A member of the RNA family "U2 spliceosomal RNA" from Zingiber officinale, 179 nucleotides long. Pairs were carried over by alignment from the consensus structure, which is taken from published work. A search with the family's covariance model found it, with a score of 102 bits.
[Rfam]
RNA sequence: AUUAUUUCUCGGUCUUUUGGCUAAAAUCAAGUGUAGUAUCUAUUCUUAUCAAUUUAUUAUCUGAUAUAAAAAAAUUAAAUUAUUUUUUUUAUGAGGGAGUGUCUGUUUCAAUAGCUUGUUGUUGGGUUCUCAAGUGUCGCCUUUGCGUUGUACUACUGCAUGGGUCUGACACACUCUUA
Numbered sequence: 001a002u003u004a005u006u007u008c009u010c011g012g013u014c015u016u017u018u019g020g021c022u023a024a025a026a027u028c029a030a031g032u033g034u035a036g037u038a039u040c041u042a043u044u045c046u047u048a049u050c051a052a053u054u055u056a057u058u059a060u061c062u063g064a065u066a067u068a069a070a071a072a073a074a075u076u077a078a079a080u081u082a083u084u085u086u087u088u089u090u091a092u093g094a095g096g097g098a099g100u101g102u103c104u105g106u107u108u109c110a111a112u113a114g115c116u117u118g119u120u121g122u123u124g125g126g127u128u129c130u131c132a133a134g135u136g137u138c139g140c141c142u143u144u145g146c147g148u149u150g151u152a153c154u155a156c157u158g159c160a161u162g163g164g165u166c167u168g169a170c171a172c173a174c175u176c177u178u179a
Base pairs, nucleotide, nucleotide: 007026009024011022012021013020014019047066048065049064050063051062097131098130099129101127102126103125104124111122112121113120114119134172135171136170137169138168139167141163142162144160145159146158

Background:
From the family's description: U2 is a small nuclear RNA (snRNA) component of the spliceosome (involved in pre-mRNA splicing). Complementary binding between U2 snRNA (in an area lying towards the 5' end but 3' to hairpin I) and the branchpoint sequence (BPS) of the intron results the bulging out of an unpaired adenosine, on the BPS, which initiates a nucleophilic attack at the intronic 5' splice site, thus starting the first of two transesterification reactions that mediate splicing. Rfam 15.1 lists 71,512 matches to the family in 2,642 species. Lineage of the source: Eukaryota > Mesangiospermae > commelinids > Zingiberaceae > Zingiber.